[Rfam]
Nucleotides: 074
Stems, first nucleotide, its partner, number of pairs: 003072008012063016031045004
Number, partner (000 for none) and nucleotide at each position: 001000c002000u003072c004071u005070u006069u007068c008067c009066a010065u011000a012063g013062g014061u015060g016059a017058u018057g019056a020055g021054u022053c023052a024051c025050a026049g027048g028000g029000c030000u031045c032044a033043g034042g035000g036000a037000a038000u039000g040000u041000g042034u043033c044032u045031g046000c047000a048027c049026c050025u051024g052023u053022g054021a055020c056019u057018c058017a059016u060015c061014a062013c063012c064000a065010g066009u067008g068007g069006a070005a071004a072003g073000c074000c